6C RNA: a 75-nucleotide RNA from Nocardioides sp. HDW12B. The family's RNA type in Rfam is cis-regulatory element. The match comes from Rfam's covariance-model search (52 bits). NCBI's taxonomy places the organism under Bacteria, Bacillati, Actinomycetes, Nocardioidaceae, Nocardioides.

[Rfam]
RNA sequence: CAAGGUCCGGGCCUAUCCCCCCCAGGUCCGGGCCCUGGGCUCCUGGCUAUCCCCCCUGGCCAGGAGCCCGCCCCC
Numbered sequence: 001c002a003a004g005g006u007c008c009g010g011g012c013c014u015a016u017c018c019c020c021c022c023c024a025g026g027u028c029c030g031g032g033c034c035c036u037g038g039g040c041u042c043c044u045g046g047c048u049a050u051c052c053c054c055c056c057u058g059g060c061c062a063g064g065a066g067c068c069c070g071c072c073c074c075c
Stems, first nucleotide, its partner, number of pairs: 002036001004034010037071001038068010